[Rfam]
RNA sequence: UUAGUAGAUCGCCUUAUCGAUUCUAAAGUAAUUUAGGGUAGGAAAGUCCGAACACCAUAGUGCAAUCAUAGUGGUUAACAGCCAUCCAUCGUAAGGUGAGGAAAAGUGCAACAGAAAGAAUGUACAGGUCAUGCUGUAGUGAAACCAGGUAAACUCUAUGUGGUGCAAUGUCAUGUAUACUAACGUUUGAGCGUGCACGCGCGAUUGUUAGAGGGUAGACAGCUAAAGUUUGCUGGUAACAGUAAACAUAGAUAAAUGAUAAGGGCAUUUUCUUUUUUAAGGAAAGUGUACAGAAUUCGGCUUAUAGAUUUACUAAAACA
Numbered sequence: 001u002u003a004g005u006a007g008a009u010c011g012c013c014u015u016a017u018c019g020a021u022u023c024u025a026a027a028g029u030a031a032u033u034u035a036g037g038g039u040a041g042g043a044a045a046g047u048c049c050g051a052a053c054a055c056c057a058u059a060g061u062g063c064a065a066u067c068a069u070a071g072u073g074g075u076u077a078a079c080a081g082c083c084a085u086c087c088a089u090c091g092u093a094a095g096g097u098g099a100g101g102a103a104a105a106g107u108g109c110a111a112c113a114g115a116a117a118g119a120a121u122g123u124a125c126a127g128g129u130c131a132u133g134c135u136g137u138a139g140u141g142a143a144a145c146c147a148g149g150u151a152a153a154c155u156c157u158a159u160g161u162g163g164u165g166c167a168a169u170g171u172c173a174u175g176u177a178u179a180c181u182a183a184c185g186u187u188u189g190a191g192c193g194u195g196c197a198c199g200c201g202c203g204a205u206u207g208u209u210a211g212a213g214g215g216u217a218g219a220c221a222g223c224u225a226a227a228g229u230u231u232g233c234u235g236g237u238a239a240c241a242g243u244a245a246a247c248a249u250a251g252a253u254a255a256a257u258g259a260u261a262a263g264g265g266c267a268u269u270u271u272c273u274u275u276u277u278u279a280a281g282g283a284a285a286g287u288g289u290a291c292a293g294a295a296u297u298c299g300g301c302u303u304a305u306a307g308a309u310u311u312a313c314u315a316a317a318a319c320a
Stems, first nucleotide, its partner, number of pairs: 001316010011305001012264007020039008044303003048300005053165004060198003067160004071085005086100001087098004101156002106154002108150002169221004180211005190205001192203003228247008